[Rfam]
RNA sequence: GUCUUAUUAAGAACUACUGAGAGAAAAAACUCGACGAAGUAGUAGCAACCUUUUAAGUUAGGUGCUUAAAUUCAGGGGAAACCAACGAUGAGAA
Numbered sequence: 001g002u003c004u005u006a007u008u009a010a011g012a013a014c015u016a017c018u019g020a021g022a023g024a025a026a027a028a029a030c031u032c033g034a035c036g037a038a039g040u041a042g043u044a045g046c047a048a049c050c051u052u053u054u055a056a057g058u059u060a061g062g063u064g065c066u067u068a069a070a071u072u073c074a075g076g077g078g079a080a081a082c083c084a085a086c087g088a089u090g091a092g093a094a
Stems, first nucleotide, its partner, number of pairs: 002093007013043005021032003028072002044066004049062002052057001075083002
The record is a 94-nucleotide RNA from Spiroplasma apis, which matches "SAM riboswitch aptamer (S box leader)" in Rfam. Its family is annotated with regulation of gene expression in the Gene Ontology. A search with the family's covariance model found it, with a score of 46 bits. The SAM riboswitch is found upstream of a number of genes which code for proteins involved in methionine or cysteine biosynthesis in Gram-positive bacteria.